RNA sequence: UUGUCAGCUAAGGAGACAGAAAAAUUAUCUACUGAUGAGACUUAGCCGAAACCACCUCUUUUAGGGGUGGUCUAGAU
Numbered sequence: 001u002u003g004u005c006a007g008c009u010a011a012g013g014a015g016a017c018a019g020a021a022a023a024a025u026u027a028u029c030u031a032c033u034g035a036u037g038a039g040a041c042u043u044a045g046c047c048g049a050a051a052c053c054a055c056c057u058c059u060u061u062u063a064g065g066g067g068u069g070g071u072c073u074a075g076a077u
Stems, first nucleotide, its partner, number of pairs: 002018004008045005027077005039047001051071009

Shown here is a 77-nucleotide sequence, a member of the family "RAGATH-1 hammerhead ribozyme".